A member of the RNA family "mir-305 microRNA precursor family" from Strigamia maritima, 73 nucleotides long. The base pairs follow the family's consensus structure, which was predicted with RNAalifold. Its family is annotated with miRNA-mediated post-transcriptional gene silencing and RISC complex in the Gene Ontology. Taxonomically the source falls in Strigamia (Eukaryota, Opisthokonta, Myriapoda, Epimorpha).
RNA sequence: CACGUUUAUUGUACUUCAUCAGGUGCUCUGGUGUAGGUGGGAACCCGGCAUCUGUUGGAGUACAAUUGACAGG
Dot-bracket structure: (..(.....(((.(((((.((.(((((..((............)).))))).)).))))).))).....)..)
Numbered sequence: 001c002a003c004g005u006u007u008a009u010u011g012u013a014c015u016u017c018a019u020c021a022g023g024u025g026c027u028c029u030g031g032u033g034u035a036g037g038u039g040g041g042a043a044c045c046c047g048g049c050a051u052c053u054g055u056u057g058g059a060g061u062a063c064a065a066u067u068g069a070c071a072g073g
Stems, first nucleotide, its partner, number of pairs: 001073001004070001010064003014060005020054002023051005030045002